This 118-nucleotide RNA sequence from Owenia fusiformis belongs to the Rfam family "Vault RNA". Rfam classes the family as a non-coding RNA gene.
RNA sequence: AGGUUGGCCCUAGUAAAGUGGAUCCAUCGUAGUCUAAUGGUAUGAUUAUUCUUGCGGGAAGAAUAGAUGUUGGUUCGAUUCCAUCCAAUACUUUCUACUUUCGCAAUCCAGCCUUUUU
Numbered sequence: 001a002g003g004u005u006g007g008c009c010c011u012a013g014u015a016a017a018g019u020g021g022a023u024c025c026a027u028c029g030u031a032g033u034c035u036a037a038u039g040g041u042a043u044g045a046u047u048a049u050u051c052u053u054g055c056g057g058g059a060a061g062a063a064u065a066g067a068u069g070u071u072g073g074u075u076c077g078a079u080u081c082c083a084u085c086c087a088a089u090a091c092u093u094u095c096u097a098c099u100u101u102c103g104c105a106a107u108c109c110a111g112c113c114u115u116u117u118u
Stems, first nucleotide, its partner, number of pairs: 002113006013102001015100002018098004026079004